RNA sequence: AAUUCAUCCAGAGAGGCGGAGGGACUGGCCCUAUGAAGCCCGGCAACCUGUUUAAACAAGGUGCUAAUUCCAGCGGUUAUACCGAGAGAUGACGA
Numbered sequence: 001a002a003u004u005c006a007u008c009c010a011g012a013g014a015g016g017c018g019g020a021g022g023g024a025c026u027g028g029c030c031c032u033a034u035g036a037a038g039c040c041c042g043g044c045a046a047c048c049u050g051u052u053u054a055a056a057c058a059a060g061g062u063g064c065u066a067a068u069u070c071c072a073g074c075g076g077u078u079a080u081a082c083c084g085a086g087a088g089a090u091g092a093c094g095a
Stems, first nucleotide, its partner, number of pairs: 004092005013041001015040003021031003025073004042065004047061002049058003069087001074084004
SAM riboswitch aptamer (S box leader): a 95-nucleotide RNA from Fenollaria massiliensis. A search with the family's covariance model found it, with a score of 80 bits.